[Rfam]
RNA sequence: UGUCAAUGAUGAGUUGCACAUUAGGUCAAAGGUUACGACCCUUGUGGGGUCACCUGUGACACAUACAUCAUUGUGAUGACUCAACCAAGUGCACAGGGGCCAUCUGAGACAGA
Numbered sequence: 001u002g003u004c005a006a007u008g009a010u011g012a013g014u015u016g017c018a019c020a021u022u023a024g025g026u027c028a029a030a031g032g033u034u035a036c037g038a039c040c041c042u043u044g045u046g047g048g049g050u051c052a053c054c055u056g057u058g059a060c061a062c063a064u065a066c067a068u069c070a071u072u073g074u075g076a077u078g079a080c081u082c083a084a085c086c087a088a089g090u091g092c093a094c095a096g097g098g099g100c101c102a103u104c105u106g107a108g109a110c111a112g113a
Stems, first nucleotide, its partner, number of pairs: 004112001021065001024062001025060004030055003037051005

Annotation
The record is a 113-nucleotide RNA sequence from Apostichopus japonicus, which matches "Small nucleolar RNA SNORD67" in Rfam. On this family, see Huttenhofer et al., EMBO J 2001: "RNomics: an experimental approach that identifies 201 candidates for novel, small, non-messenger RNAs in mouse". It scores 55 bits against the family's covariance model. Its family is annotated with nucleolus and RNA processing in the Gene Ontology. From the family's description: snoRNA HBII-166 belongs to the C/D family of snoRNAs.